RNA sequence: GCUUCACGAAGGCGGAGGCAGCGCUUUCGUCUUUACCUCCCUGUUGGACUUGGGCCGGGCUUCACGCUCGGCCUUUUUU
Numbered sequence: 001g002c003u004u005c006a007c008g009a010a011g012g013c014g015g016a017g018g019c020a021g022c023g024c025u026u027u028c029g030u031c032u033u034u035a036c037c038u039c040c041c042u043g044u045u046g047g048a049c050u051u052g053g054g055c056c057g058g059g060c061u062u063c064a065c066g067c068u069c070g071g072c073c074u075u076u077u078u079u
Stems, first nucleotide, its partner, number of pairs: 006030007053073008

The record is a 79-nucleotide RNA from Rhodovulum adriaticum, which matches "Singlet oxygen resistance RNA X" in Rfam. The family has 8 seed sequences and 528 matches in Rfam 15.1. Pairs were carried over by alignment from the consensus structure. The match comes from Rfam's covariance-model search (48 bits). Rfam links the family to the GO term response to photooxidative stress. The family's RNA type in Rfam is small RNA.